[Rfam]
RNA sequence: UCACUUUCCUAAGUACUAGUGCCGCAGGAGCUAGGUCUGUGCCAGCAAUACCUCCUGCUGCCCAAGUGCUUAUCAAAGUGA
Numbered sequence: 001u002c003a004c005u006u007u008c009c010u011a012a013g014u015a016c017u018a019g020u021g022c023c024g025c026a027g028g029a030g031c032u033a034g035g036u037c038u039g040u041g042c043c044a045g046c047a048a049u050a051c052c053u054c055c056u057g058c059u060g061c062c063c064a065a066g067u068g069c070u071u072a073u074c075a076a077a078g079u080g081a
Stems, first nucleotide, its partner, number of pairs: 001081007010072008019063001024058007

mir-252 microRNA precursor family: an 81-nucleotide sequence from Scaptodrosophila lebanonensis. The match comes from Rfam's covariance-model search (76 bits). A reference for the family is Li et al. (2009), "Direct sequencing and expression analysis of a large number of miRNAs in Aedes aegypti and a multi-species survey of novel mosquito miRNAs", BMC Genomics. Clan: mir-252 microRNA precursor family. NCBI's taxonomy places the organism under Eukaryota, Arthropoda, Insecta, Colocasiomyini, Scaptodrosophila.